[Rfam]
The record is a 99-nucleotide RNA sequence from Anisodus acutangulus, which matches "Small nucleolar RNA Z266" in Rfam.

RNA sequence: UUAUGGCAAGAAUGAUGAGAAUAUUAGAUGCACGAGUGGUUGAAUUCUUCCUCUAUGAGCUGAAUUAUCGAGGCAUACCGAUUCUCUGACUUGCAAUGU
Dot-bracket structure: .(((.(((((...............................................................................))))).))).
The match comes from Rfam's covariance-model search (49 bits).